[Rfam]
RNA sequence: UGCAGUCCAGUCAAAUUCAGAUCUUCCUGCUCAGUGGAAGCUUCUGGCCAAAGUGGCUGCUACAGUGAAGCUGUAGUUCAUGGGCCUCAUGGUGCUUCACCAUCACCUCUGAGGAUAAAUAUGUACUACACACACAC
Numbered sequence: 001u002g003c004a005g006u007c008c009a010g011u012c013a014a015a016u017u018c019a020g021a022u023c024u025u026c027c028u029g030c031u032c033a034g035u036g037g038a039a040g041c042u043u044c045u046g047g048c049c050a051a052a053g054u055g056g057c058u059g060c061u062a063c064a065g066u067g068a069a070g071c072u073g074u075a076g077u078u079c080a081u082g083g084g085c086c087u088c089a090u091g092g093u094g095c096u097u098c099a100c101c102a103u104c105a106c107c108u109c110u111g112a113g114g115a116u117a118a119a120u121a122u123g124u125a126c127u128a129c130a131c132a133c134a135c136a137c
Stems, first nucleotide, its partner, number of pairs: 002060004018046004023040005073129005078123001085114005